[Rfam]
RNA sequence: AGAGCAGUGGUAGCAUAGCAGAAGUACUCAUGUUGUGACCCUGUCAGAUUCCAACAAAUCUGCAAAUUCUGCU
Numbered sequence: 001a002g003a004g005c006a007g008u009g010g011u012a013g014c015a016u017a018g019c020a021g022a023a024g025u026a027c028u029c030a031u032g033u034u035g036u037g038a039c040c041c042u043g044u045c046a047g048a049u050u051c052c053a054a055c056a057a058a059u060c061u062g063c064a065a066a067u068u069c070u071g072c073u
Base pairs, nucleotide, nucleotide: 009040010039011038014037017073018072019071020070021069022068023067024036025035026034045062046061047060048059049058050057
RNA: Mammalian CPEB3 ribozyme